[Rfam]
RNA sequence: UUUGUUUAUGGUCAUCUACUUAUUCUGCUUCAGUAUUUUUGUACAAUUAAUAUAUGACAUAAUGAUUAGAUGACCAUCAACAAACA
Numbered sequence: 001u002u003u004g005u006u007u008a009u010g011g012u013c014a015u016c017u018a019c020u021u022a023u024u025c026u027g028c029u030u031c032a033g034u035a036u037u038u039u040u041g042u043a044c045a046a047u048u049a050a051u052a053u054a055u056g057a058c059a060u061a062a063u064g065a066u067u068a069g070a071u072g073a074c075c076a077u078c079a080a081c082a083a084a085c086a
Base pairs, nucleotide, nucleotide: 001084002083003082004081005080006079008077009076010075011074012073013072014071015070016069017068018067020065021064022063023062033060034059036057038054039052042049043048

This 86-nucleotide RNA from Prunus persica belongs to the Rfam family "MIR827_2 microRNA precursor family".
Pairs were carried over by alignment from the consensus structure, which was predicted with RNAalifold.
Gene Ontology terms of the family: RISC complex and miRNA-mediated post-transcriptional gene silencing.
It is one of the family's seed sequences.